[Rfam]
RNA sequence: UGGCCCAUCGGGGCUUUGGAUACCUGCUUUUAUUGUU
Numbered sequence: 001u002g003g004c005c006c007a008u009c010g011g012g013g014c015u016u017u018g019g020a021u022a023c024c025u026g027c028u029u030u031u032a033u034u035g036u037u
Base pairs, nucleotide, nucleotide: 003014004013005012006011017026018025019024

Background:
XIST RNA A repeat: a 37-nucleotide RNA sequence from Otolemur garnettii. Lineage of the source: Eukaryota > Metazoa > Teleostomi > Theria > Otolemur. It scores 55 bits against the family's covariance model.